[Rfam]
RNA sequence: GACGGCGAGGAUGAUGAAACAAUUAGAUGUGCGAACUGGGGGUAAUUUCCUAGUUAUGAGCUUAAAACCUUUGAGGCAUUAUCAUAUCUCUGACAUCGCUGUC
Numbered sequence: 001g002a003c004g005g006c007g008a009g010g011a012u013g014a015u016g017a018a019a020c021a022a023u024u025a026g027a028u029g030u031g032c033g034a035a036c037u038g039g040g041g042g043u044a045a046u047u048u049c050c051u052a053g054u055u056a057u058g059a060g061c062u063u064a065a066a067a068c069c070u071u072u073g074a075g076g077c078a079u080u081a082u083c084a085u086a087u088c089u090c091u092g093a094c095a096u097c098g099c100u101g102u103c
Stems, first nucleotide, its partner, number of pairs: 001103008010094001
This 103-nucleotide RNA from Microthlaspi erraticum belongs to the Rfam family "Small nucleolar RNA Z266". Its family is annotated with RNA processing and nucleolus in the Gene Ontology. NCBI's taxonomy places the organism under Eukaryota, Euphyllophyta, Spermatophyta, malvids, Microthlaspi. By type it is a C/D-box small nucleolar RNA. Rfam 15.1 lists 719 matches to the family in 213 species.